[Rfam]
RNA sequence: UUGAAUGUAAAUUAAUUUAUGUUUGGAUAACCUCUUCCAAAAGUGAUUUUUAUGAGUUGAUUUUGUUUGGAUAC
Numbered sequence: 001u002u003g004a005a006u007g008u009a010a011a012u013u014a015a016u017u018u019a020u021g022u023u024u025g026g027a028u029a030a031c032c033u034c035u036u037c038c039a040a041a042a043g044u045g046a047u048u049u050u051u052a053u054g055a056g057u058u059g060a061u062u063u064u065g066u067u068u069g070g071a072u073a074c
Stems, first nucleotide, its partner, number of pairs: 011061008021053002025049004032043002
This 74-nucleotide sequence from Trifolium medium belongs to the Rfam family "MIR5272 microRNA precursor family".
Rfam 15.1 lists 271 matches to the family in 4 species.
It scores 65 bits against the family's covariance model.